[Rfam]
RNA sequence: CCGGAUUCCUCACUACGACCCGUGACGGCAGGAGCGGGGGACCCACAGGCAAGAACGCCGCCCGGGAAUUCCCCACAGCGGCUCGGGGUGAAGUCGUGUCCCUGUCAGGAAUGGCAAGGGUGCGGCCGGACAUCUCCCGUCCGAACCCGACAGCUCACCUCGCAGGCGACGGAGAGGAAUCUC
Numbered sequence: 001c002c003g004g005a006u007u008c009c010u011c012a013c014u015a016c017g018a019c020c021c022g023u024g025a026c027g028g029c030a031g032g033a034g035c036g037g038g039g040g041a042c043c044c045a046c047a048g049g050c051a052a053g054a055a056c057g058c059c060g061c062c063c064g065g066g067a068a069u070u071c072c073c074c075a076c077a078g079c080g081g082c083u084c085g086g087g088g089u090g091a092a093g094u095c096g097u098g099u100c101c102c103u104g105u106c107a108g109g110a111a112u113g114g115c116a117a118g119g120g121u122g123c124g125g126c127c128g129g130a131c132a133u134c135u136c137c138c139g140u141c142c143g144a145a146c147c148c149g150a151c152a153g154c155u156c157a158c159c160u161c162g163c164a165g166g167c168g169a170c171g172g173a174g175a176g177g178a179a180u181c182u183c
Stems, first nucleotide, its partner, number of pairs: 001166002006033003034163006044085001086148003094125008128142004
RNA: c-di-AMP riboswitch aptamer (ydaO/yuaA leader)
Organism: Streptomyces xanthii